[Rfam]
RNA: SAM riboswitch aptamer (S box leader)
RNA sequence: CUCUUAUAAAGAGAGGUUGAGGGACUGGCCCUUUGAUACCUCGGCAACCAUUGAACUUGUUCAAACGGUGCCAAUUCCAGCAGAUUCUUUAGGAGUCUGAUCUAUGAGAG
Numbered sequence: 001c002u003c004u005u006a007u008a009a010a011g012a013g014a015g016g017u018u019g020a021g022g023g024a025c026u027g028g029c030c031c032u033u034u035g036a037u038a039c040c041u042c043g044g045c046a047a048c049c050a051u052u053g054a055a056c057u058u059g060u061u062c063a064a065a066c067g068g069u070g071c072c073a074a075u076u077c078c079a080g081c082a083g084a085u086u087c088u089u090u091a092g093g094a095g096u097c098u099g100a101u102c103u104a105u106g107a108g109a110g
Stems, first nucleotide, its partner, number of pairs: 001110008013042005021031003025080004043072004048068002051064004081099006